[Rfam]
RNA sequence: GAUCACGAUGAUGACUCCAUAAAAUUCAAGCUCAACAGACCGCAGUGCAGUGCUUUCUUCUCUUUCGAGAGAUUGCUUUGCGUGUCGAUAACCCCGCUGAACUGAGUGAUC
Numbered sequence: 001g002a003u004c005a006c007g008a009u010g011a012u013g014a015c016u017c018c019a020u021a022a023a024a025u026u027c028a029a030g031c032u033c034a035a036c037a038g039a040c041c042g043c044a045g046u047g048c049a050g051u052g053c054u055u056u057c058u059u060c061u062c063u064u065u066c067g068a069g070a071g072a073u074u075g076c077u078u079u080g081c082g083u084g085u086c087g088a089u090a091a092c093c094c095c096g097c098u099g100a101a102c103u104g105a106g107u108g109a110u111c
Base pairs, nucleotide, nucleotide: 001111002110003109004108005107006106